[Rfam]
RNA: Archaeal large subunit ribosomal RNA, nucleotides 964 to 1402
Organism: Halorutilus salinus
RNA sequence: CCCACCAAAAAAUGUCUAAGCAUUACCUCUGCUGAGGUAGUGUGUGGGGUAGAGCAACCGAUUGGGGAAUACUCUCCCUAGCGGGAGAGGUCCCUUGUCGAACUCCGAACCCACACACGCCGUAGACGCAGGGAGUCCGGGCUACGGGGUAAGCUUGUAGUCCGCGAGGGAGACAACCCAGACGUAGGUUAAGGUCCCCAAGUACAGACUAAGUGCUAUUACACGAAGGAUGUCACAAGCCGUAGACAACCGGGAGGUCAGCUUAGAAGCAGCUACCCUCUAAGAAAAGCGUAACAGCUUACCGGUCGAGGUUUGUGGCUCCCAAAAUUAACGGGGCUCAAGUCUGUCACCGAUACCUACGGCAUUUUGCGAUAGGUGGGCACUCGGCGCGGGCGGAAGCACGGCUUUGAGGUCGUGUGGACCGCGUCGUGAAGAAAAU
Numbered sequence: 001c002c003c004a005c006c007a008a009a010a011a012a013u014g015u016c017u018a019a020g021c022a023u024u025a026c027c028u029c030u031g032c033u034g035a036g037g038u039a040g041u042g043u044g045u046g047g048g049g050u051a052g053a054g055c056a057a058c059c060g061a062u063u064g065g066g067g068a069a070u071a072c073u074c075u076c077c078c079u080a081g082c083g084g085g086a087g088a089g090g091u092c093c094c095u096u097g098u099c100g101a102a103c104u105c106c107g108a109a110c111c112c113a114c115a116c117a118c119g120c121c122g123u124a125g126a127c128g129c130a131g132g133g134a135g136u137c138c139g140g141g142c143u144a145c146g147g148g149g150u151a152a153g154c155u156u157g158u159a160g161u162c163c164g165c166g167a168g169g170g171a172g173a174c175a176a177c178c179c180a181g182a183c184g185u186a187g188g189u190u191a192a193g194g195u196c197c198c199c200a201a202g203u204a205c206a207g208a209c210u211a212a213g214u215g216c217u218a219u220u221a222c223a224c225g226a227a228g229g230a231u232g233u234c235a236c237a238a239g240c241c242g243u244a245g246a247c248a249a250c251c252g253g254g255a256g257g258u259c260a261g262c263u264u265a266g267a268a269g270c271a272g273c274u275a276c277c278c279u280c281u282a283a284g285a286a287a288a289g290c291g292u293a294a295c296a297g298c299u300u301a302c303c304g305g306u307c308g309a310g311g312u313u314u315g316u317g318g319c320u321c322c323c324a325a326a327a328u329u330a331a332c333g334g335g336g337c338u339c340a341a342g343u344c345u346g347u348c349a350c351c352g353a354u355a356c357c358u359a360c361g362g363c364a365u366u367u368u369g370c371g372a373u374a375g376g377u378g379g380g381c382a383c384u385c386g387g388c389g390c391g392g393g394c395g396g397a398a399g400c401a402c403g404g405c406u407u408u409g410a411g412g413u414c415g416u417g418u419g420g421a422c423c424g425c426g427u428c429g430u431g432a433a434g435a436a437a438a439u
Stems, first nucleotide, its partner, number of pairs: 001380006011024005026135001027133006036121003040118008052106001053104002060099003064095005073088006139163009168179003183361007193351003202348001204347006228322003232319010249306005255279003260274003280284001285300001289298002362370002381434001383431001385429008399418008